[Rfam]
RNA: Mammalian CPEB3 ribozyme
Organism: Crocodylus porosus
RNA sequence: ACAAGUUUGAGGCCAUAGCAGAAGCACUCAUGGUGCAACUGGUUCAGAUUGCAAUGAAUCUGCAAAUUCUGCU
Numbered sequence: 001a002c003a004a005g006u007u008u009g010a011g012g013c014c015a016u017a018g019c020a021g022a023a024g025c026a027c028u029c030a031u032g033g034u035g036c037a038a039c040u041g042g043u044u045c046a047g048a049u050u051g052c053a054a055u056g057a058a059u060c061u062g063c064a065a066a067u068u069c070u071g072c073u
Base pairs, nucleotide, nucleotide: 011040012039017073018072019071020070021069022068023067024036025035026034045062046061047060048059049058050057